[Rfam]
RNA sequence: CCAACAUUCGGACCGUCGGUCUACCGAGCAAAUAUCACCCGCUCUGUGGAAGAUUUCUUUUCGUCGU
Numbered sequence: 001c002c003a004a005c006a007u008u009c010g011g012a013c014c015g016u017c018g019g020u021c022u023a024c025c026g027a028g029c030a031a032a033u034a035u036c037a038c039c040c041g042c043u044c045u046g047u048g049g050a051a052g053a054u055u056u057c058u059u060u061u062c063g064u065c066g067u
Stems, first nucleotide, its partner, number of pairs: 004064002010058003015054003020050005026044004
Shown here is a 67-nucleotide RNA from Bombyx mori, a member of the family "mir-2774 microRNA precursor family". A search with the family's covariance model found it, with a score of 64 bits. Rfam links the family to the GO terms RISC complex and miRNA-mediated post-transcriptional gene silencing.